RNA: R2 RNA element
Organism: Drosophila persimilis
RNA sequence: ACCUUAUGAGGGAAAUAUUUUAGUCAUUCCAUUGCUUCAGCAUUGUAUUUAAAAUGUAAUAUAUAUUCAUUACCUAAAAUUAGCACAGAUUUUACUGGGGGUGUUUAGUCCGUAGGCGUGUUUUUCAACAUGAAUCGGGCAUGCCCUUUAGCGACGGCUUUAAAGAGUACCUUAAGAAAAUUCACCAAUUCAAAUGGUC
Numbered sequence: 001a002c003c004u005u006a007u008g009a010g011g012g013a014a015a016u017a018u019u020u021u022a023g024u025c026a027u028u029c030c031a032u033u034g035c036u037u038c039a040g041c042a043u044u045g046u047a048u049u050u051a052a053a054a055u056g057u058a059a060u061a062u063a064u065a066u067u068c069a070u071u072a073c074c075u076a077a078a079a080u081u082a083g084c085a086c087a088g089a090u091u092u093u094a095c096u097g098g099g100g101g102u103g104u105u106u107a108g109u110c111c112g113u114a115g116g117c118g119u120g121u122u123u124u125u126c127a128a129c130a131u132g133a134a135u136c137g138g139g140c141a142u143g144c145c146c147u148u149u150a151g152c153g154a155c156g157g158c159u160u161u162a163a164a165g166a167g168u169a170c171c172u173u174a175a176g177a178a179a180a181u182u183c184a185c186c187a188a189u190u191c192a193a194a195u196g197g198u199c
Base pairs, nucleotide, nucleotide: 036059037058065198067197068196069195070194096192097191098190099189100186101185102184108140109139110138111137112136117132118131119130120129121128122127142169143168144167146165147164